L17 ribosomal protein downstream element: a 62-nucleotide RNA from Furfurilactobacillus rossiae. It scores 41 bits against the family's covariance model. The base pairs follow the family's consensus structure, which is taken from published work.
RNA sequence: AAAGCGUUAUGAUGAUGGCGAUCGCGUUCGCCCAGUCUAGCUUGAAUGAGUUUUUUGCUCGU
Numbered sequence: 001a002a003a004g005c006g007u008u009a010u011g012a013u014g015a016u017g018g019c020g021a022u023c024g025c026g027u028u029c030g031c032c033c034a035g036u037c038u039a040g041c042u043u044g045a046a047u048g049a050g051u052u053u054u055u056u057g058c059u060c061g062u
Stems, first nucleotide, its partner, number of pairs: 002043004011037003017032005046062005